[Rfam]
RNA sequence: CUAAUAAUUGAACCAUACUUGUCACCAUUGAUUAUUGAUUUCUCCUACUUGACCUCGGUUAUGCCGGGGUUUUU
Numbered sequence: 001c002u003a004a005u006a007a008u009u010g011a012a013c014c015a016u017a018c019u020u021g022u023c024a025c026c027a028u029u030g031a032u033u034a035u036u037g038a039u040u041u042c043u044c045c046u047a048c049u050u051g052a053c054c055u056c057g058g059u060u061a062u063g064c065c066g067g068g069g070u071u072u073u074u
Stems, first nucleotide, its partner, number of pairs: 052070008